This 531-nucleotide part of an RNA from Gossypium anomalum belongs to the Rfam family "Microsporidia small subunit ribosomal RNA". The literature on the family includes a 2002 paper in BMC Bioinformatics by Cannone et al., "The comparative RNA web (CRW) site: an online database of comparative sequence and structure information for ribosomal, intron, and other RNAs". Rfam 15.1 lists 1,035 matches to the family in 436 species. The match comes from Rfam's covariance-model search (710 bits).
[Rfam]
Nucleotides: 531
Stems, first nucleotide, its partner, number of pairs: 001494001003492001011362001013360002018355003253349003256345003260341002265337004271315002275311008286297003323330002367408006377401001381397004419490003423482002426467004470477002496523003505516004
Number, partner (000 for none) and nucleotide at each position: 001494u002000a003492g004000u005000u006000a007000a008000a009000a010000a011362g012000c013360u014359c015000g016000u017000a018355g019354u020353u021000g022000g023000a024000c025000u026000u027000a028000g029000g030000g031000g032000u033000g034000g035000g036000u037000c038000g039000g040000c041000c042000g043000g044000u045000c046000c047000g048000c049000c050000u051000c052000a053000u054000g055000g056000u057000g058000a059000a060000u061000a062000c063000c064000g065000g066000u067000c068000u069000g070000c071000u072000c073000g074000u075000c076000c077000c078000u079000a080000c081000u082000a083000c084000u085000g086000g087000c088000g089000a090000u091000g092000c093000g094000c095000u096000u097000c098000u099000g100000g101000c102000c103000u104000u105000a106000a107000u108000u109000g110000g111000c112000c113000g114000g115000g116000u117000c118000g119000u120000u121000c122000c123000u124000c125000u126000g127000g128000c129000g130000c131000u132000g133000u134000u135000a136000c137000u138000u139000u140000g141000a142000a143000g144000a145000a146000a147000u148000u149000a150000g151000a152000g153000u154000g155000c156000u157000c158000a159000a160000a161000g162000c163000a164000g165000g166000c167000c168000u169000a170000c171000g172000c173000u174000u175000g176000u177000a178000u179000a180000c181000a182000u183000u184000a185000g186000c187000u188000u189000g190000g191000g192000a193000u194000a195000a196000c197000a198000u199000c200000a201000u202000a203000g204000g205000a206000u207000u208000u209000c210000g211000a212000u213000c214000c215000u216000a217000u218000u219000g220000u221000g222000u223000u224000g225000g226000c227000c228000u229000u230000c231000g232000g233000g234000a235000u236000c237000g238000g239000a240000g241000u242000a243000a244000u245000g246000a247000u248000c249000a250000a251000u252000a253349g254348g255347g256345a257344c258343a259000g260341u261340c262000g263000g264000g265337g266336g267335c268334a269000u270000u271315c272314g273000u274000a275311u276310u277309u278308c279307a280306u281305a282304g283000u284000c285000a286297g287296a288295g289000g290000u291000g292000a293000a294000a295288u296287u297286c298000u299000u300000g301000g302000a303000u304282u305281u306280a307279u308278g309277a310276a311275a312000g313000a314272u315271g316000a317000a318000c319000a320000a321000c322000u323330g324329c325000g326000a327000a328000a329324g330323c331000a332000u333000u334268u335267g336266c337265c338000a339000a340261g341260g342000a343258u344257g345256u346000u347255u348254u349253c350000a351000u352000u353020a354019a355018u356000c357000a358000a359014g360013a361000a362011c363000g364000a365000a366000a367408g368407u369406u370405g371404g372403g373000g374000g375000c376000u377401c378000g379000a380000a381397g382396a383395c384394g385000a386000u387000c388000a389000g390000a391000u392000a393000u394384c395383g396382u397381c398000c399000u400000a401377g402000u403372c404371u405370c406369a407368a408367c409000c410000a411000u412000a413000a414000a415000c416000g417000a418000u419490g420489c421488c422000a423482a424481c425000c426467a427466a428465g429464g430000a431000u432000c433000g434000g435000u436000a437000g438000a439000u440000g441000u442000u443000g444000c445000u446000u447000u448000u449000a450000g451000g452000a453000c454000u455000c456000c457000g458000c459000c460000g461000g462000c463000a464429c465428c466427u467426u468000a469000u470477g471476a472000g473000a474000a475000a476471u477470c478000a479000a480000a481424g482423u483000c484000u485000u486000u487000g488421g489420g490419u491000u492003c493000c494001g495000g496523g497522g498521g499000g500000a501000g502000u503000a504000u505516g506515g507514u508513c509000g510000c511000a512000a513508g514507g515506c516505u517000g518000a519000a520000a521498c522497u523496u524000a525000a526000a527000g528000g529000a530000a531000u